[Rfam]
The record is a 259-nucleotide RNA sequence from Rhodamnia argentea, which matches "MIR530 microRNA precursor family" in Rfam. On this family, see Lu et al., Plant J 2008: "Stress-responsive microRNAs in Populus".

RNA sequence: GUCAAGAUGUAGCCUUUAUCUGCAUUUGCACCUGCACCUCAUAUUGCUUUCCGUUCUUCCCUGCGCAUGCCUCUGUGCUGAGAUUUGCGGGUAUAAGAUGAGGAUUGUUCAAAGAGAAGGAAAGCCCCGAAACGUGUUUCGAAUUGGUAUUUCCCCUCAAACCCAGAAAGGGAAGAAGAAGAAGAAGAAAGAAGCGCAGGUGAAGAAGCAGAGGCGCUUGGAAGGUGCAGGUGCAGGUGCAGAUGAAUGCCAUUUUGAC
Numbered sequence: 001g002u003c004a005a006g007a008u009g010u011a012g013c014c015u016u017u018a019u020c021u022g023c024a025u026u027u028g029c030a031c032c033u034g035c036a037c038c039u040c041a042u043a044u045u046g047c048u049u050u051c052c053g054u055u056c057u058u059c060c061c062u063g064c065g066c067a068u069g070c071c072u073c074u075g076u077g078c079u080g081a082g083a084u085u086u087g088c089g090g091g092u093a094u095a096a097g098a099u100g101a102g103g104a105u106u107g108u109u110c111a112a113a114g115a116g117a118a119g120g121a122a123a124g125c126c127c128c129g130a131a132a133c134g135u136g137u138u139u140c141g142a143a144u145u146g147g148u149a150u151u152u153c154c155c156c157u158c159a160a161a162c163c164c165a166g167a168a169a170g171g172g173a174a175g176a177a178g179a180a181g182a183a184g185a186a187g188a189a190a191g192a193a194g195c196g197c198a199g200g201u202g203a204a205g206a207a208g209c210a211g212a213g214g215c216g217c218u219u220g221g222a223a224g225g226u227g228c229a230g231g232u233g234c235a236g237g238u239g240c241a242g243a244u245g246a247a248u249g250c251c252a253u254u255u256u257g258a259c
Stems, first nucleotide, its partner, number of pairs: 001259009012250002015247025054177009
Overview: NCBI's taxonomy places the organism under Eukaryota, Tracheophyta, Mesangiospermae, Myrtales, Rhodamnia.